The record is a 169-nucleotide sequence from Lonsdalea quercina, which matches "Glm Y RNA activator of glmS mRNA" in Rfam. Its Rfam clan is "Glm clan". The base pairs follow the family's consensus structure, which is taken from published work.
RNA sequence: AGCUGCUCAUUCAACUGGUUAUGACAGCGAAGCAGAAUCAUCGCUUUUGCCCAUAACACCCGGAAUGAUGCCAUAAGAAAUGGUGCCUAUCGUCCAACAUCAACGAUAACUGUGCGUGCAAACGAACUUUAUCAUCCCUCGGACGACACGUUGAGUGAGGCACCCCCUC
Numbered sequence: 001a002g003c004u005g006c007u008c009a010u011u012c013a014a015c016u017g018g019u020u021a022u023g024a025c026a027g028c029g030a031a032g033c034a035g036a037a038u039c040a041u042c043g044c045u046u047u048u049g050c051c052c053a054u055a056a057c058a059c060c061c062g063g064a065a066u067g068a069u070g071c072c073a074u075a076a077g078a079a080a081u082g083g084u085g086c087c088u089a090u091c092g093u094c095c096a097a098c099a100u101c102a103a104c105g106a107u108a109a110c111u112g113u114g115c116g117u118g119c120a121a122a123c124g125a126a127c128u129u130u131a132u133c134a135u136c137c138c139u140c141g142g143a144c145g146a147c148a149c150g151u152u153g154a155g156u157g158a159g160g161c162a163c164c165c166c167c168u169c
Base pairs, nucleotide, nucleotide: 005071006070007068008067009066010065011064012063019056020055021054022053023052026045027044028043082164083163084162085161086160087159088158091145092144093143094142095141105133106132107131108130109129147157148156149155

A reference for the family is Rivas et al. (2001), "Computational identification of noncoding RNAs in E. coli by comparative genomics", Curr Biol. Rfam classes the family as a small RNA. NCBI's taxonomy places the organism under Bacteria, Pseudomonadota, Enterobacterales, Pectobacteriaceae, Lonsdalea.